[Rfam]
RNA: mir-726 microRNA precursor family
RNA sequence: AUGGGUAGGUCUGGAAUUCCGCUAGUUCUGAACUAUUCGUGGUUGGUAAAAGUUCACUACUAGCAGAACUCAGAUUUGCUCCCGA
Numbered sequence: 001a002u003g004g005g006u007a008g009g010u011c012u013g014g015a016a017u018u019c020c021g022c023u024a025g026u027u028c029u030g031a032a033c034u035a036u037u038c039g040u041g042g043u044u045g046g047u048a049a050a051a052g053u054u055c056a057c058u059a060c061u062a063g064c065a066g067a068a069c070u071c072a073g074a075u076u077u078g079c080u081c082c083c084g085a
Base pairs, nucleotide, nucleotide: 003083004082005079006078007077008076009075011073012072013071014070017068018067019066021064022063023062024061025060026059029056030055031054032053033052034051036050037049